[Rfam]
RNA sequence: GUGAGCCAGGAAGAGGAAGAGAGACUCUAAGAGCAGUAGGAAUGGGAACAUGAAGGAAAGCCAAAUUAAGCUCUAACCUCUGGUGUUGGAGAUUUGGUCUGAUGAUUUUCCUGAUGCCUCCCAUUCCUAUAGUUCUUAGGUGCUCGUUCCUCUUACUUUCAGCU
Number, nucleotide and partner (000 for none) at each position: 001g000002u000003g000004a000005g000006c000007c000008a000009g000010g154011a153012a000013g151014a000015g149016g148017a147018a000019g000020a000021g145022a144023g143024a000025c000026u140027c139028u138029a137030a136031g135032a134033g133034c132035a000036g000037u129038a128039g127040g126041a125042a124043u123044g122045g121046g120047a119048a000049c116050a115051u114052g000053a112054a000055g111056g110057a109058a108059a107060g106061c000062c000063a000064a000065a000066u000067u000068a000069a000070g000071c000072u000073c000074u000075a000076a000077c000078c000079u000080c000081u000082g000083g000084u000085g000086u000087u000088g000089g000090a000091g000092a000093u000094u000095u000096g000097g000098u000099c000100u000101g000102a000103u000104g000105a000106u060107u059108u058109u057110c056111c055112u053113g000114a051115u050116g049117c000118c000119u047120c046121c045122c044123a043124u042125u041126c040127c039128u038129a037130u000131a000132g034133u033134u032135c031136u030137u029138a028139g027140g026141u000142g000143c023144u022145c021146g000147u017148u016149c015150c000151u013152c000153u011154u010155a000156c000157u000158u000159u000160c000161a000162g000163c000164u000
This 164-nucleotide RNA from Oryza glumipatula belongs to the Rfam family "MIR2118 microRNA precursor family". For this family Rfam cites "Characterization and expression profiles of miRNAs in rice seeds" (Xue et al., Nucleic Acids Res, 2009). The family's consensus secondary structure was predicted with RNAalifold.